[Rfam]
RNA sequence: GACGCUUCAUGACAGGAAGGACUGAAAUGUUUUCCGGACACAUGGUCUUUCCUAGAAUCUCUCGUGUC
Numbered sequence: 001g002a003c004g005c006u007u008c009a010u011g012a013c014a015g016g017a018a019g020g021a022c023u024g025a026a027a028u029g030u031u032u033u034c035c036g037g038a039c040a041c042a043u044g045g046u047c048u049u050u051c052c053u054a055g056a057a058u059c060u061c062u063c064g065u066g067u068c
Stems, first nucleotide, its partner, number of pairs: 001068005014053010029039003

The record is a 68-nucleotide sequence from Trichechus manatus, which matches "Selenocysteine insertion sequence 1" in Rfam. NCBI's taxonomy places the organism under Eukaryota, Craniata, Teleostomi, Trichechus, Trichechus manatus. The match comes from Rfam's covariance-model search (40 bits). Pairs were carried over by alignment from the consensus structure, which is taken from published work.